A member of the RNA family "t44 RNA" from Dokdonella immobilis, 91 nucleotides long.
Taxonomically the source falls in Dokdonella (Bacteria, Pseudomonadati, Gammaproteobacteria, Lysobacterales).
RNA sequence: CCUGCGUUACGCCAAAUCCGCACACGUAUCGUCACCGUUUUCGGGGUGCCUCUCCGGAGGUCGCAGACGGCGGAUACGUGGAGGUCUCAAC
Numbered sequence: 001c002c003u004g005c006g007u008u009a010c011g012c013c014a015a016a017u018c019c020g021c022a023c024a025c026g027u028a029u030c031g032u033c034a035c036c037g038u039u040u041u042c043g044g045g046g047u048g049c050c051u052c053u054c055c056g057g058a059g060g061u062c063g064c065a066g067a068c069g070g071c072g073g074a075u076a077c078g079u080g081g082a083g084g085u086c087u088c089a090a091c
Base pairs, nucleotide, nucleotide: 023080024079025078026077027076028075029074030073035070036069037068038067039066040065042063043062048061049060050059051058052057